[Rfam]
Nucleotides: 083
Stems, first nucleotide, its partner, number of pairs: 012037002017032006040077004045073003048068003055062002
Number, partner (000 for none) and nucleotide at each position: 001000a002000a003000a004000c005000g006000a007000g008000a009000a010000a011000g012037g013036c014000a015000a016000a017032g018031c019030u020029a021028c022027u023000g024000a025000a026000a027022a028021g029020u030019a031018g032017u033000g034000a035000c036013g037012c038000a039000a040077a041076g042075c043074u044000g045073u046072g047071g048068g049067c050066c051000u052000a053000a054000g055062g056061u057000u058000a059000a060000u061056a062055c063000u064000a065000u066050g067049g068048u069000u070000g071047c072046c073045a074043a075042g076041c077040u078000a079000c080000c081000g082000a083000a